Annotation
This 78-nucleotide RNA from Suricata suricatta belongs to the Rfam family "Small nucleolar RNA SNORD47". The organism belongs to Suricata, within Eukaryota. By type it is a C/D-box small nucleolar RNA. The match comes from Rfam's covariance-model search (96 bits). Gene Ontology terms of the family: nucleolus and RNA processing. A reference for the family is Galardi et al. (2002), "Purified box C/D snoRNPs are able to reproduce site-specific 2'-O-methylation of target RNA in vitro", Mol Cell Biol.

RNA sequence: AACCAGUGAUGUGAUGAUUCUGCCAAAUGAAACCAGAUGAUAUCACCCCUAAAACCGUUCCAUUUUGAUUCUGAGGUU
Numbered sequence: 001a002a003c004c005a006g007u008g009a010u011g012u013g014a015u016g017a018u019u020c021u022g023c024c025a026a027a028u029g030a031a032a033c034c035a036g037a038u039g040a041u042a043u044c045a046c047c048c049c050u051a052a053a054a055c056c057g058u059u060c061c062a063u064u065u066u067g068a069u070u071c072u073g074a075g076g077u078u
Stems, first nucleotide, its partner, number of pairs: 001078004